Source information
A member of the RNA family "transfer-messenger RNA" from Chlamydia caviae, 425 nucleotides long. It is annotated as a non-coding RNA gene. The sequence is in the family's curated seed alignment. Its family is annotated with RNA catabolic process in the Gene Ontology. Lineage of the source: Bacteria > Chlamydiia > Chlamydiaceae > Chlamydia > Chlamydia caviae. A reference for the family is Williams and Bartel (1996), "Phylogenetic analysis of tmRNA secondary structure", RNA.

RNA sequence: GGGGGUGUAUAGGUUUCGACUUGGAAAUGAAGUGUUAAUUGCAUGCGGAGGGCGUUGGCUGGCCUCCUAAAAAGCCGACAAAACAAUAAAUGCCGAACCUAAGGCUGAAUGCGAAAUUAUCAGUUUCUCUGACCUCACCGAGGAAAGAUUAGCUGCUUAAUUAGCAAAAGUUGUUGUCUAGAUAACCUCUAGAUAACCCGGUGCUCAUAGACUCCACCAGAGGUUUGUGAAACACCGUCAUCUAUCUGGUUGGAAUCUACCUUCUCUAAUUCUCAAGGAGGUUUAUUCGAGAUUAUUGAGAGUCGUUGGCUUCCAUAGAUGUUCUUAGCUGAGGAAGUUCAAUGUAUGAUUACUAGGGACUAAGCAUGUAGAGGUUAGCAGGGAGUUUACUAAGGACGAGAGUUCGAGUCUCUCCACCUCCAUUU
Numbered sequence: 001g002g003g004g005g006u007g008u009a010u011a012g013g014u015u016u017c018g019a020c021u022u023g024g025a026a027a028u029g030a031a032g033u034g035u036u037a038a039u040u041g042c043a044u045g046c047g048g049a050g051g052g053c054g055u056u057g058g059c060u061g062g063c064c065u066c067c068u069a070a071a072a073a074g075c076c077g078a079c080a081a082a083a084c085a086a087u088a089a090a091u092g093c094c095g096a097a098c099c100u101a102a103g104g105c106u107g108a109a110u111g112c113g114a115a116a117u118u119a120u121c122a123g124u125u126u127c128u129c130u131g132a133c134c135u136c137a138c139c140g141a142g143g144a145a146a147g148a149u150u151a152g153c154u155g156c157u158u159a160a161u162u163a164g165c166a167a168a169a170g171u172u173g174u175u176g177u178c179u180a181g182a183u184a185a186c187c188u189c190u191a192g193a194u195a196a197c198c199c200g201g202u203g204c205u206c207a208u209a210g211a212c213u214c215c216a217c218c219a220g221a222g223g224u225u226u227g228u229g230a231a232a233c234a235c236c237g238u239c240a241u242c243u244a245u246c247u248g249g250u251u252g253g254a255a256u257c258u259a260c261c262u263u264c265u266c267u268a269a270u271u272c273u274c275a276a277g278g279a280g281g282u283u284u285a286u287u288c289g290a291g292a293u294u295a296u297u298g299a300g301a302g303u304c305g306u307u308g309g310c311u312u313c314c315a316u317a318g319a320u321g322u323u324c325u326u327a328g329c330u331g332a333g334g335a336a337g338u339u340c341a342a343u344g345u346a347u348g349a350u351u352a353c354u355a356g357g358g359a360c361u362a363a364g365c366a367u368g369u370a371g372a373g374g375u376u377a378g379c380a381g382g383g384a385g386u387u388u389a390c391u392a393a394g395g396a397c398g399a400g401a402g403u404u405c406g407a408g409u410c411u412c413u414c415c416a417c418c419u420c421c422a423u424u425u
Stems, first nucleotide, its partner, number of pairs: 001421007020394005026388001033380008042368005047067005054079007150176004155171004199237005205230003209226004216250006251290001253288004269303006304344005309338002316331003321360003326355003398414005